[Rfam]
RNA sequence: CGGGAUAACCCUCCCUAGGGAAAUCGGCAAAUUGGCCCCGUAUCUUUGGUAGAAGGGGUGCCUGCUACCUGCGGGAUUAAACUCGUAGGCUAGCAGGUCGCAGUGACAAGGGGAGUCCGACUGUUUACCAAAAACACAGGUCUCUGCUAGGGGGCAACCCUGUGUACAGAGGCCGAUGCCUGCUCACUGCCAGAAGGUGAAAGUCCGGUUCAACGGACUUAAGCCCUGGUGAAGAGCGGGGGUAACUCUGACCCUCUUAAGGUAGCGUAAUACCUCGCCGCUUAAUUGGCGGCUUGCAUGAAGGGCAUAACGAGGCUCCCACUGUCCCAGGGAGGGACCCGGCGAACCUACCAGCUGGUGAAGACGCCAGCAA
Numbered sequence: 001c002g003g004g005a006u007a008a009c010c011c012u013c014c015c016u017a018g019g020g021a022a023a024u025c026g027g028c029a030a031a032u033u034g035g036c037c038c039c040g041u042a043u044c045u046u047u048g049g050u051a052g053a054a055g056g057g058g059u060g061c062c063u064g065c066u067a068c069c070u071g072c073g074g075g076a077u078u079a080a081a082c083u084c085g086u087a088g089g090c091u092a093g094c095a096g097g098u099c100g101c102a103g104u105g106a107c108a109a110g111g112g113g114a115g116u117c118c119g120a121c122u123g124u125u126u127a128c129c130a131a132a133a134a135c136a137c138a139g140g141u142c143u144c145u146g147c148u149a150g151g152g153g154g155c156a157a158c159c160c161u162g163u164g165u166a167c168a169g170a171g172g173c174c175g176a177u178g179c180c181u182g183c184u185c186a187c188u189g190c191c192a193g194a195a196g197g198u199g200a201a202a203g204u205c206c207g208g209u210u211c212a213a214c215g216g217a218c219u220u221a222a223g224c225c226c227u228g229g230u231g232a233a234g235a236g237c238g239g240g241g242g243u244a245a246c247u248c249u250g251a252c253c254c255u256c257u258u259a260a261g262g263u264a265g266c267g268u269a270a271u272a273c274c275u276c277g278c279c280g281c282u283u284a285a286u287u288g289g290c291g292g293c294u295u296g297c298a299u300g301a302a303g304g305g306c307a308u309a310a311c312g313a314g315g316c317u318c319c320c321a322c323u324g325u326c327c328c329a330g331g332g333a334g335g336g337a338c339c340c341g342g343c344g345a346a347c348c349u350a351c352c353a354g355c356u357g358g359u360g361a362a363g364a365c366g367c368c369a370g371c372a373a
Base pairs, nucleotide, nucleotide: 001341002340003339004338009336010335011334012333013332014331015330016329018327019326020325035059036058037057038056039055044049060098061097062096063095064094065093066092067091099103111320112319113318114317115316116315117314118312119311122136123135124134139174140173141172142171143170144169145168146167147164150161151160152159153158177307178306179305180304182237183236184235187234188233189230190229191228192227193226196225197224198223203218204217205216206215207214238256239255240254241253242252243251257261277293278292279291280290281289282288354371355370356369357368358367
Archaeal large subunit ribosomal RNA: a 373-nucleotide part of an RNA from uncultured euryarchaeote Alv-FOS5. Rfam's curators put it in the seed alignment. The family is grouped with related families in Rfam's "LSU clan". The organism belongs to Methanobacteriota, within Archaea. The family's consensus secondary structure is taken from published work. A reference for the family is Yusupov et al. (2001), "Crystal structure of the ribosome at 5.5 A resolution", Science.